About this RNA: Rfam assigns this 352-nucleotide RNA sequence from Herpetotheres cachinnans to the family "Nuclear RNase P". A search with the family's covariance model found it, with a score of 160 bits. Ribonuclease P (RNase P) is a ubiquitous endoribonuclease, found in archaea, bacteria and eukarya as well as chloroplasts and mitochondria. Lineage of the source: Eukaryota > Vertebrata > Sauria > Falconiformes > Herpetotheres. It is annotated as a ribozyme.

RNA sequence: UCCGGGGGAAGCUCACCGCCGAGGCCACCCACUGGGUGCGCGUCACUCCACGGCCCCGCCUCGGGGAAGGUCUGAGGGAAGGGCCGCGCCACGGCUCUUGCAGAGCCCCGCCCGCGAUGGGCGGGUGAGCCACCAGCAAGGGGGGGCGCCGCGAUAUGGGCCGGCCUGGGCAGGAGAAGCCGAGUGGGUGUGCGGGGAGUUGGGGGGUUACUUCACCCCCACCCGUGGUACCCCCGGUGGAUGCUCGUGGCCCCGCGGUGCUUUGAGACAGACUCACGGCCGGCGAUCGUUGAGUCCAAUGGGUGAGGUGGGGCAGCGCCCUACAACCUAAUUCAGACUACUCUCCCCCGGA
Number, nucleotide and partner (000 for none) at each position: 001u352002c351003c350004g349005g000006g000007g346008g345009a344010a000011g000012c307013u306014c305015a304016c303017c302018g000019c000020c063021g062022a061023g060024g059025c000026c000027a000028c000029c000030c000031a000032c000033u000034g048035g047036g046037u045038g044039c000040g000041c000042g000043u000044c038045a037046c036047u035048c034049c000050a000051c000052g000053g000054c000055c000056c000057c000058g000059c024060c023061u022062c021063g020064g000065g000066g000067a000068a000069g000070g000071u000072c336073u335074g334075a333076g332077g000078g000079a000080a000081g000082g281083g280084c279085c278086g000087c000088g000089c000090c000091a000092c000093g107094g106095c105096u104097c103098u000099u000100g000101c000102a000103g097104a096105g095106c094107c093108c124109c123110g122111c121112c120113c119114g000115c000116g000117a000118u000119g113120g112121g111122c110123g109124g108125g277126u276127g275128a274129g273130c000131c271132a000133c000134c000135a000136g000137c000138a000139a000140g000141g000142g000143g000144g000145g262146g261147c260148g259149c258150c257151g256152c255153g254154a000155u000156a000157u000158g000159g000160g000161c000162c000163g000164g000165c000166c000167u000168g000169g000170g000171c000172a000173g000174g000175a000176g000177a000178a000179g000180c000181c000182g000183a000184g000185u000186g000187g000188g000189u000190g000191u000192g000193c000194g000195g000196g000197g000198a000199g000200u000201u000202g000203g000204g000205g000206g000207g000208u000209u000210a000211c000212u000213u000214c000215a000216c000217c000218c000219c000220c000221a000222c000223c000224c000225g000226u000227g000228g000229u000230a000231c000232c000233c000234c000235c000236g000237g000238u000239g000240g000241a000242u000243g000244c000245u000246c000247g000248u000249g000250g000251c000252c000253c000254c153255g152256c151257g150258g149259u148260g147261c146262u145263u000264u000265g000266a000267g000268a000269c000270a000271g131272a000273c129274u128275c127276a126277c125278g085279g084280c083281c082282g000283g000284c000285g000286a000287u000288c000289g000290u000291u000292g000293a000294g000295u000296c000297c000298a000299a000300u000301g000302g017303g016304u015305g014306a013307g012308g324309u323310g322311g321312g320313g319314c318315a000316g000317c000318g314319c313320c312321c311322u310323a309324c308325a000326a000327c000328c000329u000330a000331a000332u076333u075334c074335a073336g072337a000338c000339u000340a000341c000342u000343c000344u009345c008346c007347c000348c000349c004350g003351g002352a001